[Rfam]
RNA: mir-208 microRNA precursor family
Organism: Gouania willdenowi
RNA sequence: UCCAACGGAUCAGCUUUUUGUUCGUGUUAUGUUCCGAUUAAAAUGUAAGACGAACAAAAAGUUUGUCUGUUUGAUG
Numbered sequence: 001u002c003c004a005a006c007g008g009a010u011c012a013g014c015u016u017u018u019u020g021u022u023c024g025u026g027u028u029a030u031g032u033u034c035c036g037a038u039u040a041a042a043a044u045g046u047a048a049g050a051c052g053a054a055c056a057a058a059a060a061g062u063u064u065g066u067c068u069g070u071u072u073g074a075u076g
Stems, first nucleotide, its partner, number of pairs: 004071003008067002012063007020055001023052002027048006